A member of the RNA family "Small nucleolar RNA R64/Z200 family" from Beta vulgaris, 94 nucleotides long. It is annotated as a C/D-box small nucleolar RNA. Its family is annotated with nucleolus and RNA processing in the Gene Ontology. The base pairs follow the family's consensus structure, which was predicted with PFOLD. The match comes from Rfam's covariance-model search (76 bits). Taxonomically the source falls in Beta vulgaris (Eukaryota, Streptophytina, Embryophyta, Amaranthaceae). The literature on the family includes a 2002 paper in Mol Cell Biol by Galardi et al., "Purified box C/D snoRNPs are able to reproduce site-specific 2'-O-methylation of target RNA in vitro".
RNA sequence: UCUAUGUGGUGAUGAUUUAUGGAAUUAUUCACAUGUCAGACUUCAGAGAUUGUUCGCAAUCUGUGAGAUUAAAAUCCUUAUUUCUGAACACAGC
Numbered sequence: 001u002c003u004a005u006g007u008g009g010u011g012a013u014g015a016u017u018u019a020u021g022g023a024a025u026u027a028u029u030c031a032c033a034u035g036u037c038a039g040a041c042u043u044c045a046g047a048g049a050u051u052g053u054u055c056g057c058a059a060u061c062u063g064u065g066a067g068a069u070u071a072a073a074a075u076c077c078u079u080a081u082u083u084c085u086g087a088a089c090a091c092a093g094c
Stems, first nucleotide, its partner, number of pairs: 002093002005090003048061004